[Rfam]
RNA sequence: GCAGCGUUGAUAUGUCUGGUAUUCUUGGGUUGAAACUGAACAACCAGUAUCUCAGACAUAUCGCCGUUGU
Numbered sequence: 001g002c003a004g005c006g007u008u009g010a011u012a013u014g015u016c017u018g019g020u021a022u023u024c025u026u027g028g029g030u031u032g033a034a035a036c037u038g039a040a041c042a043a044c045c046a047g048u049a050u051c052u053c054a055g056a057c058a059u060a061u062c063g064c065c066g067u068u069g070u
Stems, first nucleotide, its partner, number of pairs: 008063012021050002028045004
RNA: mir-50 microRNA precursor family